This 145-nucleotide RNA from Effusibacillus lacus belongs to the Rfam family "Group II catalytic intron D1-D4-4". Pairs were carried over by alignment from the consensus structure. It scores 96 bits against the family's covariance model. The organism belongs to Effusibacillus, within Bacteria. About the family: Group II introns are found in rRNA, tRNA and mRNA of organelles in fungi, plants and protists, and also in mRNA in bacteria.
RNA sequence: UAGCCGGUGGAAGUCCGGUCAAGGGAAGUGCCAAGACACCCUUGUAGCUUGGAUGCCUGCGUACGGAGAGAUCCGUGCGCAGAAGCGCAUCGACGAAAGUACCCGUCAGAGAAUGGGGCGAGCAAGAUACCAGGCCGUAACAUCA
Number, nucleotide and partner (000 for none) at each position: 001u000002a000003g000004c000005c000006g000007g000008u000009g000010g000011a000012a000013g000014u000015c000016c000017g000018g000019u000020c044021a043022a042023g041024g040025g000026a000027a000028g000029u000030g000031c000032c000033a000034a000035g000036a000037c000038a000039c000040c024041c023042u022043u021044g020045u000046a000047g000048c000049u000050u000051g000052g091053a090054u089055g088056c087057c082058u081059g080060c079061g078062u077063a000064c000065g000066g073067a072068g000069a000070g000071a000072u067073c066074c000075g000076u000077g062078c061079g060080c059081a058082g057083a000084a000085g000086c000087g056088c055089a054090u053091c052092g000093a000094c000095g000096a000097a000098a000099g119100u000101a000102c117103c116104c115105g114106u113107c000108a000109g000110a000111g000112a000113a106114u105115g104116g103117g102118g000119c099120g000121a000122g138123c137124a000125a000126g000127a000128u000129a000130c000131c000132a000133g000134g000135c000136c000137g123138u122139a000140a000141c000142a000143u000144c000145a000